[Rfam]
RNA sequence: GAAGCCCGCCAGGCCGCCGCUGGUGCCACACGGGAAACCAGGCACUGGAGGAACGUCCGGACUGCACAGGACAGCGUAGCAGGUAACACCUGUCCACCGCGAGGUGAGGAUCAGAGCAACAGAGACGAGUCCUGUGCCCAACCCUUCGAAAGAAGGGGCGGGCGCAGGGGUGAAACGGGCAAUCUCUACGCGCAGCAAUACCAAAUAGGCCGGCAGUGGGCGCAAGCCCUGUCCCGUGGUCCGCGGGAUGCCGGCGGGUAGGUAGCACCGAGCCGGGACGGCGACGCCCGGCCCAGAGGAAUGGCGGUCACGUCCGGGCAACCGGACGCCACAGAAUCCGGCGUACGGCGGACUUCACAC
Dot-bracket structure: ((((.(((((.(((((((.((((((((.............))))))))....[[[.[[[[[((((...[[[[.((((((((((.....)))))(((((....)))).)((...((((.............((.((((((..((((((....))))))..))))))..)).........))..)))))))))))))...((((......((((((..................(((((.]]]])))))..)))))).....)))).......((((((.((....))))))))..........)))))))...........................]]]]]]]]..))))).))))....
This 360-nucleotide RNA sequence from Ramlibacter tataouinensis belongs to the Rfam family "Bacterial RNase P class A". Taxonomically the source falls in Ramlibacter (Bacteria, Pseudomonadati, Burkholderiales, Comamonadaceae). Rfam classes the family as a ribozyme. About the family: Ribonuclease P (RNase P) is a ubiquitous endoribonuclease, found in archaea, bacteria and eukarya as well as chloroplasts and mitochondria. It scores 181 bits against the family's covariance model.